The family of this 128-nucleotide RNA from Neomonachus schauinslandi is "Small nucleolar RNA SNORA30/SNORA37 family". For this family Rfam cites "RNomics: an experimental approach that identifies 201 candidates for novel, small, non-messenger RNAs in mouse" (Huttenhofer et al., EMBO J, 2001). The members of this family belong to the H/ACA class of snoRNAs that guide the sites of modification of uridines to pseudouridines. This family includes human ACA30 (SNORA30), ACA37 (SNORA37) and the mouse homolog MBI-26. Both ACA37 and ACA30 are predicted to guide the pseudouridylation of residue U4643 of 28S rRNA. The base pairs follow the family's consensus structure, which was predicted with RNAfold. The match comes from Rfam's covariance-model search (116 bits). Lineage of the source: Eukaryota > Opisthokonta > Chordata > Pinnipedia > Neomonachus. Rfam classes the family as an H/ACA-box small nucleolar RNA.
RNA sequence: AUAGCACUUUCACAGGUCCUCCCCUGACAUUGGGGCCAGGAUUUGGUAGCUGGUGCUGAAAGAAAACCCUUGAUUGCAUCCUGGCCGUGGAACCGUGCCAGGGGCAGCUGUCACUCAGUGGGACAGAG
Numbered sequence: 001a002u003a004g005c006a007c008u009u010u011c012a013c014a015g016g017u018c019c020u021c022c023c024c025u026g027a028c029a030u031u032g033g034g035g036c037c038a039g040g041a042u043u044u045g046g047u048a049g050c051u052g053g054u055g056c057u058g059a060a061a062g063a064a065a066a067c068c069c070u071u072g073a074u075u076g077c078a079u080c081c082u083g084g085c086c087g088u089g090g091a092a093c094c095g096u097g098c099c100a101g102g103g104g105c106a107g108c109u110g111u112c113a114c115u116c117a118g119u120g121g122g123a124c125a126g127a128g
Stems, first nucleotide, its partner, number of pairs: 003057006013045003017041004021035004067122003070118004075113002078111002082107001084105003088100003